RNA sequence: GGCAGAAGCCUGAUCUUUAGUCCCGGUUCCAGCCACCAACCGGGACUAAAGAGGCUGCCCCAGGAGCGAGGCCUUUUGGUCCCGGUUCAUGUCUGGAACCGGGACCUAUGGCCCCCGAAGUU
Numbered sequence: 001g002g003c004a005g006a007a008g009c010c011u012g013a014u015c016u017u018u019a020g021u022c023c024c025g026g027u028u029c030c031a032g033c034c035a036c037c038a039a040c041c042g043g044g045a046c047u048a049a050a051g052a053g054g055c056u057g058c059c060c061c062a063g064g065a066g067c068g069a070g071g072c073c074u075u076u077u078g079g080u081c082c083c084g085g086u087u088c089a090u091g092u093c094u095g096g097a098a099c100c101g102g103g104a105c106c107u108a109u110g111g112c113c114c115c116c117g118a119a120g121u122u
Stems, first nucleotide, its partner, number of pairs: 002058004018048011068115001070113004081103005

The family of this 122-nucleotide RNA sequence from Triticum aestivum is "Small nucleolar RNA SNORA5". NCBI's taxonomy places the organism under Eukaryota, Spermatophyta, Magnoliopsida, Triticodae, Triticum. Rfam's curators write: ACA5 is a member of the H/ACA class of snoRNA that guide the sites of modification of uridines to pseudouridines.